[Rfam]
RNA sequence: ACAUGGGUUUGGAUUUAUGGCAGGCCUGUCCCCCUGGGAAUCUCCUAGUAUCUCAUGCCAGAGCAAACCUAUGGCUCCAAACCAUUGUCUGGCAUCUGCCUGCAGGCUGCUGGCACUGAAGUAGGUUUUACAGUG
Numbered sequence: 001a002c003a004u005g006g007g008u009u010u011g012g013a014u015u016u017a018u019g020g021c022a023g024g025c026c027u028g029u030c031c032c033c034c035u036g037g038g039a040a041u042c043u044c045c046u047a048g049u050a051u052c053u054c055a056u057g058c059c060a061g062a063g064c065a066a067a068c069c070u071a072u073g074g075c076u077c078c079a080a081a082c083c084a085u086u087g088u089c090u091g092g093c094a095u096c097u098g099c100c101u102g103c104a105g106g107c108u109g110c111u112g113g114c115a116c117u118g119a120a121g122u123a124g125g126u127u128u129u130a131c132a133g134u135g
Stems, first nucleotide, its partner, number of pairs: 002057003005053004015048003019044002022041001025037002073127004083118002088113002090109004095104001
The family of this 135-nucleotide RNA from Castor canadensis is "Small nucleolar RNA SNORA42/SNORA80 family". Rfam links the family to the GO terms nucleolus and RNA processing. The base pairs follow the family's consensus structure, which was predicted with RNAalifold. It is annotated as an H/ACA-box small nucleolar RNA. Rfam describes the family as follows. The members of this family belong to the H/ACA class of snoRNAs that guide the sites of modification of uridines to pseudouridines. Human ACA42 (SNORA42) was cloned from HeLa cells by immunoprecipitation with anti-GAR1 antibody. Its is predicted to guide the pseudouridylation of residues U109 and U572 of 18S rRNA. ACA42 shares the same host gene with ACA26, ACA46, ACA50. This family also includes mammalian snoRNA ACA67 (SNORA80) which was identified by computational screening and its expression in mouse experimentally verified by Northern blot and primer extension analysis. A reference for the family is Schattner et al. (2006), "A computational screen for mammalian pseudouridylation guide H/ACA RNAs", RNA.